This 93-nucleotide sequence from Erinaceus europaeus belongs to the Rfam family "mir-802 microRNA precursor family".

[Rfam]
RNA sequence: CUUCUAUUAUUUGCAGUCAGUAACAAAGAUUCACCCUUGUGUCAAUAAACAGCAAGGGGAAUCUUUGUCACUUAGUGUAAUUAAUAGCUGGAU
Number, nucleotide and partner (000 for none) at each position: 001c000002u000003u000004c087005u086006a085007u084008u083009a082010u000011u080012u079013g078014c077015a076016g000017u074018c000019a072020g071021u070022a000023a068024c067025a066026a065027a064028g063029a062030u061031u060032c059033a000034c058035c057036c056037u055038u054039g053040u052041g050042u049043c000044a000045a000046u000047a000048a000049a042050c041051a000052g040053c039054a038055a037056g036057g035058g034059g032060a031061a030062u029063c028064u027065u026066u025067g024068u023069c000070a021071c020072u019073u000074a017075g000076u015077g014078u013079a012080a011081u000082u009083a008084a007085u006086a005087g004088c000089u000090g000091g000092a000093u000

A reference for the family is Takada et al. (2006), "Mouse microRNA profiles determined with a new and sensitive cloning method", Nucleic Acids Res.